[Rfam]
Nucleotides: 098
Stems, first nucleotide, its partner, number of pairs: 012095001013062006063081003067077003082094003
Number, partner (000 for none) and nucleotide at each position: 001000a002000u003000a004000a005000u006000g007000a008000u009000a010000c011000u012095c013062c014061u015060g016059u017058a018057c019000a020000g021000c022000c023000a024000c025000a026000g027000c028000c029000c030000g031000a032000g033000c034000g035000u036000u037000u038000a039000a040000a041000g042000c043000g044000u045000c046000a047000c048000a049000g050000g051000c052000a053000a054000u055000g056000g057018g058017u059016a060015u061014a062013g063081c064080u065079g066000c067077a068076u069075g070000c071000g072000a073000a074000c075069c076068a077067u078000g079065c080064a081063g082094g083093g084092g085000u086000g087000a088000a089000u090000u091000u092084c093083c094082c095012g096000u097000g098000a
Background
A member of the RNA family "pemK RNA" from Oceanobacillus indicireducens, 98 nucleotides long. It is annotated as a cis-regulatory element.